[Rfam]
RNA sequence: AGGCCCAAAGAGAGAGGCAGGGUCUGAUCCGCAGCCUCUGUGGCAGCUGUGGACCAGCCGUUGUCUCUCUCUUUCUCUCCC
Numbered sequence: 001a002g003g004c005c006c007a008a009a010g011a012g013a014g015a016g017g018c019a020g021g022g023u024c025u026g027a028u029c030c031g032c033a034g035c036c037u038c039u040g041u042g043g044c045a046g047c048u049g050u051g052g053a054c055c056a057g058c059c060g061u062u063g064u065c066u067c068u069c070u071c072u073u074u075c076u077c078u079c080c081c
Stems, first nucleotide, its partner, number of pairs: 008073013022059001024057003028053002032049004
RNA: mir-574 microRNA precursor family